This 46-nucleotide RNA sequence from Albula goreensis belongs to the Rfam family "Histone 3' UTR stem-loop". Lineage of the source: Eukaryota > Chordata > Euteleostomi > Actinopteri > Albula. Rfam 15.1 lists 44,596 matches to the family in 976 species. Its family is annotated with mRNA 3'-end processing by stem-loop binding and cleavage in the Gene Ontology.
[Rfam]
RNA sequence: ACAAAGGCUCUUUUCAGAGCCACCCACAAUCACUUCUAAAGCAUGG
Numbered sequence: 001a002c003a004a005a006g007g008c009u010c011u012u013u014u015c016a017g018a019g020c021c022a023c024c025c026a027c028a029a030u031c032a033c034u035u036c037u038a039a040a041g042c043a044u045g046g
Stems, first nucleotide, its partner, number of pairs: 006021006
It scores 40 bits against the family's covariance model.